[Rfam]
RNA: MIR854 microRNA precursor family
RNA sequence: UGAACCGAUGGAAGAGGUCGAGUAUGAUGCGAGGAGGUAUCAUUUUGAGGAACACCCUAGUCCUACAAGGGAGAGUAACAGCUUAACAGAAGCUCACAAGCGCAUUGGCAUGCUCCAAGCUUGGAACAAGGCGCAUGAAAAAGUCAUGAAAUCUUGCUUGAAGACUAUCAAGAGUCUGAAGGAGAUGCUCAAUUGCUCUUCUUCAACCAUUGUUGUUACG
Numbered sequence: 001u002g003a004a005c006c007g008a009u010g011g012a013a014g015a016g017g018u019c020g021a022g023u024a025u026g027a028u029g030c031g032a033g034g035a036g037g038u039a040u041c042a043u044u045u046u047g048a049g050g051a052a053c054a055c056c057c058u059a060g061u062c063c064u065a066c067a068a069g070g071g072a073g074a075g076u077a078a079c080a081g082c083u084u085a086a087c088a089g090a091a092g093c094u095c096a097c098a099a100g101c102g103c104a105u106u107g108g109c110a111u112g113c114u115c116c117a118a119g120c121u122u123g124g125a126a127c128a129a130g131g132c133g134c135a136u137g138a139a140a141a142a143g144u145c146a147u148g149a150a151a152u153c154u155u156g157c158u159u160g161a162a163g164a165c166u167a168u169c170a171a172g173a174g175u176c177u178g179a180a181g182g183a184g185a186u187g188c189u190c191a192a193u194u195g196c197u198c199u200u201c202u203u204c205a206a207c208c209a210u211u212g213u214u215g216u217u218a219c220g
Stems, first nucleotide, its partner, number of pairs: 001218002009209001011207001014204004020198005